Small nucleolar RNA snoR104: a 123-nucleotide sequence from Corchorus capsularis. Its family is annotated with nucleolus and RNA processing in the Gene Ontology. Pairs were carried over by alignment from the consensus structure, which was predicted with WAR.
RNA sequence: GGGUGACGCCCCAAAGCUGAGGUGUUACCUGUUCCAACUUCCAAUCUUCCUAUAGAAUUUCUGUAGUUCCUUGCUUGUAGUGCUUCAGUGAGUGCCGCAGGUCAGGUAUAAAAUGAAAUCUUC
Numbered sequence: 001g002g003g004u005g006a007c008g009c010c011c012c013a014a015a016g017c018u019g020a021g022g023u024g025u026u027a028c029c030u031g032u033u034c035c036a037a038c039u040u041c042c043a044a045u046c047u048u049c050c051u052a053u054a055g056a057a058u059u060u061c062u063g064u065a066g067u068u069c070c071u072u073g074c075u076u077g078u079a080g081u082g083c084u085u086c087a088g089u090g091a092g093u094g095c096c097g098c099a100g101g102u103c104a105g106g107u108a109u110a111a112a113a114u115g116a117a118a119u120c121u122u123c
Base pairs, nucleotide, nucleotide: 001030002029003028005026006025007024008023009022010021060116061115073102074101075100076099077098078097080095082093083092084091